[Rfam]
RNA sequence: UGGCCAUAGAAUAACUUAUUCUGUGACCACUUUGAGUUACGAUAAUUACUAUGUUAAUUUAUCAGAUUAUAGUAACUCCUUACUAAGUGAUUUACUAUAAAAUUAUGGUAAAUAUCACCGUGAGUUAUAGUAACACGAGUAUCGUCGUAAAUUGGUAUAAACAUUAUGGUAAAUCAAGGUGGCUAUAGAAUAAGUUAUUUUAUGGUCA
Numbered sequence: 001u002g003g004c005c006a007u008a009g010a011a012u013a014a015c016u017u018a019u020u021c022u023g024u025g026a027c028c029a030c031u032u033u034g035a036g037u038u039a040c041g042a043u044a045a046u047u048a049c050u051a052u053g054u055u056a057a058u059u060u061a062u063c064a065g066a067u068u069a070u071a072g073u074a075a076c077u078c079c080u081u082a083c084u085a086a087g088u089g090a091u092u093u094a095c096u097a098u099a100a101a102a103u104u105a106u107g108g109u110a111a112a113u114a115u116c117a118c119c120g121u122g123a124g125u126u127a128u129a130g131u132a133a134c135a136c137g138a139g140u141a142u143c144g145u146c147g148u149a150a151a152u153u154g155g156u157a158u159a160a161a162c163a164u165u166a167u168g169g170u171a172a173a174u175c176a177a178g179g180u181g182g183c184u185a186u187a188g189a190a191u192a193a194g195u196u197a198u199u200u201u202a203u204g205g206u207c208a
Base pairs, nucleotide, nucleotide: 001208002207003206004205005204006203007202008201009200010199011198012197013196014195015194016193017192018191019190020189021188022187023186024185025184027182028181029180030179031178032177033176037172038171039170040169042167043166044165045164046163050159051158052157053156054155055154056153057152058151059150060149061148062147065146066145067144069142070141071140072134073133074131079124080123081122082121083120087118088117089116090115091114093110094109095108096107097106098105099104
RNA: MIR6217 microRNA precursor family
Organism: Miscanthus lutarioriparius